[Rfam]
RNA: msiK RNA
Organism: Micrococcus endophyticus
RNA sequence: UCCACCCCCCCCUUCACCUCGGAUCGUCGGGCACGUGCCUGCCCGUGAAAGGACACCCCC
Dot-bracket structure: .........((.((((...........((((((......)))))))))).))........
Numbered sequence: 001u002c003c004a005c006c007c008c009c010c011c012c013u014u015c016a017c018c019u020c021g022g023a024u025c026g027u028c029g030g031g032c033a034c035g036u037g038c039c040u041g042c043c044c045g046u047g048a049a050a051g052g053a054c055a056c057c058c059c060c
Stems, first nucleotide, its partner, number of pairs: 010052002013049004028045006